Rfam assigns this 80-nucleotide RNA from Oryctolagus cuniculus to the family "Small nucleolar RNA U2-19".
The family has 29 seed sequences and 1,147 matches in Rfam 15.1.
By type it is a C/D-box small nucleolar RNA.
It scores 86 bits against the family's covariance model.
RNA sequence: GAUCAAUGAUGAAAAUAGCCAAAUCUAGCAUCAGAAGACCUUCUAGUCUUACCUCAUGCAUGAUCUCCAUUGUUCUGAGA
Numbered sequence: 001g002a003u004c005a006a007u008g009a010u011g012a013a014a015a016u017a018g019c020c021a022a023a024u025c026u027a028g029c030a031u032c033a034g035a036a037g038a039c040c041u042u043c044u045a046g047u048c049u050u051a052c053c054u055c056a057u058g059c060a061u062g063a064u065c066u067c068c069a070u071u072g073u074u075c076u077g078a079g080a
Stems, first nucleotide, its partner, number of pairs: 028059004036049004

The family's consensus secondary structure is taken from published work.
On this family, see Tycowski et al., Curr Biol 2004: "Guide RNAs with 5' Caps and Novel Box C/D snoRNA-like Domains for Modification of snRNAs in Metazoa".